[Rfam]
Shown here is a 73-nucleotide RNA sequence from Ladona fulva, a member of the family "mir-10 microRNA precursor family". NCBI's taxonomy places the organism under Eukaryota, Eumetazoa, Allotriocarida, Insecta, Ladona. Pairs were carried over by alignment from the consensus structure, which was predicted with PFOLD. For this family Rfam cites "An extensive class of small RNAs in Caenorhabditis elegans" (Lee and Ambros, Science, 2001). A search with the family's covariance model found it, with a score of 60 bits.
RNA sequence: CUGCCUGAACCCGUAGAUCCGAACUUGUGUCCAAAUACUCCACCACAAGCUCGAUUCUAUGGGUCUGGGUAGC
Numbered sequence: 001c002u003g004c005c006u007g008a009a010c011c012c013g014u015a016g017a018u019c020c021g022a023a024c025u026u027g028u029g030u031c032c033a034a035a036u037a038c039u040c041c042a043c044c045a046c047a048a049g050c051u052c053g054a055u056u057c058u059a060u061g062g063g064u065c066u067g068g069g070u071a072g073c
Stems, first nucleotide, its partner, number of pairs: 002071006010063003015058003020053003024049006